[Rfam]
RNA sequence: UACCAGCACAGAGGUUGCGGCUUGCAAGAGUAGGCCCGUCUGUUCCGGCUGCCAGGCCGCUCAUGCAGACCCGCCAAAAGGGCAAGCUGCCGAAGGUGGAUGUUCGGCAAGCAUUCGCCUGGGGUCAGUAUCGAAAGAGCUGGAACUGUCACGCCGGACAAGGCGUGUUGCGCUGUGUCAUGC
Dot-bracket structure: .....((((((.....(((((((((.......(((.....................................)))......)))))))))...(((((((((((.....)))))))))))((..(((((.(.....).)))))..))..((((((......)))))).....)))))).....